[Rfam]
RNA sequence: ACACGAGAAAGGAGGUGGUCCGAAGUUGGAUAGCAACAGGACUCGUGAGGUGGCCGUCCGCUAGCGGACCACACUGAGACCACGCCGGUGCGUUACCGGCGGGUUGGCCGCGGCGGCGCUCAGCGCGCGCCGCGACAGGACAGUGGUGGCCUGUUGGCGAAUACCAGGCAGUCACCGGGCCCCCGGCGUUCCGAGCACCAGUCCGGCUCGGACCUGAACGGCUGACGACGUUCAGGAGGUCCGCCGGGGGUUUUCCUU
Numbered sequence: 001a002c003a004c005g006a007g008a009a010a011g012g013a014g015g016u017g018g019u020c021c022g023a024a025g026u027u028g029g030a031u032a033g034c035a036a037c038a039g040g041a042c043u044c045g046u047g048a049g050g051u052g053g054c055c056g057u058c059c060g061c062u063a064g065c066g067g068a069c070c071a072c073a074c075u076g077a078g079a080c081c082a083c084g085c086c087g088g089u090g091c092g093u094u095a096c097c098g099g100c101g102g103g104u105u106g107g108c109c110g111c112g113g114c115g116g117c118g119c120u121c122a123g124c125g126c127g128c129g130c131c132g133c134g135a136c137a138g139g140a141c142a143g144u145g146g147u148g149g150c151c152u153g154u155u156g157g158c159g160a161a162u163a164c165c166a167g168g169c170a171g172u173c174a175c176c177g178g179g180c181c182c183c184c185g186g187c188g189u190u191c192c193g194a195g196c197a198c199c200a201g202u203c204c205g206g207c208u209c210g211g212a213c214c215u216g217a218a219c220g221g222c223u224g225a226c227g228a229c230g231u232u233c234a235g236g237a238g239g240u241c242c243g244c245c246g247g248g249g250g251u252u253u254u255c256c257u258u
Stems, first nucleotide, its partner, number of pairs: 014058006059159007067151001069149002072145005177253012191211006

This 258-nucleotide sequence from Amycolatopsis acidicola belongs to the Rfam family "Actinobacteria sRNA Ms_IGR-5". The family's RNA type in Rfam is small RNA. For this family Rfam cites "Identification of small RNAs in Mycobacterium smegmatis using heterologous Hfq" (Li et al., RNA, 2013). A search with the family's covariance model found it, with a score of 84 bits.